[Rfam]
RNA sequence: CUUCCUGUUUUAGUACCACCCAUCUGUAUUGUCUUAUGUGUGGCUAUGCAAAUAGGACAGAGAAACCUACUGUCAGAGUCUGAAGGGGUAGAUGGACAAACCCACUGCCUUUAUAUGUACUGACAGCACAUCACGCA
Numbered sequence: 001c002u003u004c005c006u007g008u009u010u011u012a013g014u015a016c017c018a019c020c021c022a023u024c025u026g027u028a029u030u031g032u033c034u035u036a037u038g039u040g041u042g043g044c045u046a047u048g049c050a051a052a053u054a055g056g057a058c059a060g061a062g063a064a065a066c067c068u069a070c071u072g073u074c075a076g077a078g079u080c081u082g083a084a085g086g087g088g089u090a091g092a093u094g095g096a097c098a099a100a101c102c103c104a105c106u107g108c109c110u111u112u113a114u115a116u117g118u119a120c121u122g123a124c125a126g127c128a129c130a131u132c133a134c135g136c137a
Base pairs, nucleotide, nucleotide: 004056005055006054007053016043017042018041019040072124073123074122075121090112091111092110
RNA: Small nucleolar RNA SNORA29